atpB RNA: a 130-nucleotide sequence.

[Rfam]
Nucleotides: 130
Stems, first nucleotide, its partner, number of pairs: 001046012070096010
Number, partner (000 for none) and nucleotide at each position: 001046c002045u003044g004043u005042g006041a007040u008039u009038g010037c011036c012035a013000u014000g015000c016000u017000g018000a019000u020000g021000u022000g023000c024000g025000a026000c027000g028000g029000a030000g031000u032000c033000c034000a035012u036011g037010g038009u039008g040007a041006u042005u043004g044003c045002a046001g047000a048000g049000a050000g051000u052000u053000u054000a055000u056000a057000g058000a059000c060000g061000u062000c063000c064000a065000u066000c067000g068000c069000a070096c071095c072094g073093u074092g075091a076090g077089u078088u079087c080000u081000c082000u083000u084000a085000a086000g087079g088078a089077a090076u091075u092074u093073a094072c095071g096070g097000c098000c099000c100000g101000a102000a103000c104000a105000c106000g107000g108000g109000a110000g111000a112000g113000a114000a115000c116000g117000c118000u119000g120000a121000g122000c123000g124000u125000u126000a127000c128000a129000a130000c
It is annotated as a cis-regulatory element.